[Rfam]
RNA sequence: AGAGGUCACAAAUUUGAGGCCAUAGCAGAAGCACUCAUGGCAUGGCCAUAUCAGAUUCCAACAAAUCUGUGAAUUCUGCU
Numbered sequence: 001a002g003a004g005g006u007c008a009c010a011a012a013u014u015u016g017a018g019g020c021c022a023u024a025g026c027a028g029a030a031g032c033a034c035u036c037a038u039g040g041c042a043u044g045g046c047c048a049u050a051u052c053a054g055a056u057u058c059c060a061a062c063a064a065a066u067c068u069g070u071g072a073a074u075u076c077u078g079c080u
Stems, first nucleotide, its partner, number of pairs: 013048001018047004024080007031043001052069006

Annotation: Shown here is an 80-nucleotide RNA sequence from Crocodylus porosus, a member of the family "Mammalian CPEB3 ribozyme". Rfam links the family to the GO term RNA nuclease activity. The base pairs follow the family's consensus structure, which is taken from published work. Rfam's curators write: The mammalian CPEB3 ribozyme is a self cleaving RNA located in the second intron of the CPEB3 gene which belongs to a family of genes regulating messenger RNA polyadenylation.